[Rfam]
The record is a 117-nucleotide sequence from Nitrosospira sp. Nsp14, which matches "ALIL pseudoknot" in Rfam.
By type it is a cis-regulatory element.
The source organism's lineage runs through Bacteria, Pseudomonadati, Nitrosomonadales, Nitrosomonadaceae and Nitrosospira.
The family's consensus secondary structure is taken from published work.
For this family Rfam cites "Apical loop-internal loop RNA pseudoknots: a new type of stimulator of -1 translational frameshifting in bacteria" (Mazauric et al., J Biol Chem, 2008).
Rfam links the family to the GO term positive regulation of translational frameshifting.
RNA sequence: UGCGUUUUUCGCCCAGGCGGAGCUCGACCGCCGAUUCAAGUCUUGAGAGCGUUCAUUGAUGCGCAUCGGGAUGUCUGCGGGGUCGAGCCGAUUUGUAAGGUGUUGCAGAUUGCCCCG
Numbered sequence: 001u002g003c004g005u006u007u008u009u010c011g012c013c014c015a016g017g018c019g020g021a022g023c024u025c026g027a028c029c030g031c032c033g034a035u036u037c038a039a040g041u042c043u044u045g046a047g048a049g050c051g052u053u054c055a056u057u058g059a060u061g062c063g064c065a066u067c068g069g070g071a072u073g074u075c076u077g078c079g080g081g082g083u084c085g086a087g088c089c090g091a092u093u094u095g096u097a098a099g100g101u102g103u104u105g106c107a108g109a110u111u112g113c114c115c116c117g
Base pairs, nucleotide, nucleotide: 016032017031018030019029020028078117079116080115081114082113089112090111092109093108094107095106096105097104098103